[Rfam]
RNA sequence: GAGCUUUAGUUGGUUGAAUUCGGACCAAAUUGAUCUCUUGAAAAAGAGGUACACUGAAAUGCAUUUGGUCCCCUUCAACCAGCUGUAGUGU
Numbered sequence: 001g002a003g004c005u006u007u008a009g010u011u012g013g014u015u016g017a018a019u020u021c022g023g024a025c026c027a028a029a030u031u032g033a034u035c036u037c038u039u040g041a042a043a044a045a046g047a048g049g050u051a052c053a054c055u056g057a058a059a060u061g062c063a064u065u066u067g068g069u070c071c072c073c074u075u076c077a078a079c080c081a082g083c084u085g086u087a088g089u090g091u
Base pairs, nucleotide, nucleotide: 003089004088005087008084009083010082011081012080013079014078015077016076017075018074022070023069025068026067027066028065029064030063
RNA: mir-133 microRNA precursor family